[Rfam]
This 91-nucleotide sequence from Sphenodon punctatus belongs to the Rfam family "Small nucleolar RNA SNORD35". The match comes from Rfam's covariance-model search (73 bits). From the family's description: U35 is a C/D box snoRNA located in intron 6 of ribosomal protein L13A and intron 3 of ribosomal protein S11 in humans and at homologous positions in mouse and chicken ribosomal protein genes. U35 guides the methylation of 2'-O-ribose sites in 28S rRNA. The family is grouped with related families in Rfam's "SNORD35 clan". Taxonomically the source falls in Sphenodon (Eukaryota, Deuterostomia, Sarcopterygii, Dipnotetrapodomorpha). Rfam classes the family as a C/D-box small nucleolar RNA.
RNA sequence: GGCAAAUGAUGUCUUUCUCACGAUGGUCUUCUUAGCCUCAUGGUGAAGGGGCUCUGCCGACAUUGCCGCAUGGCUUUGCUGAUGCCUAGCU
Numbered sequence: 001g002g003c004a005a006a007u008g009a010u011g012u013c014u015u016u017c018u019c020a021c022g023a024u025g026g027u028c029u030u031c032u033u034a035g036c037c038u039c040a041u042g043g044u045g046a047a048g049g050g051g052c053u054c055u056g057c058c059g060a061c062a063u064u065g066c067c068g069c070a071u072g073g074c075u076u077u078g079c080u081g082a083u084g085c086c087u088a089g090c091u
Stems, first nucleotide, its partner, number of pairs: 001086004
The family's consensus secondary structure was predicted with PFOLD.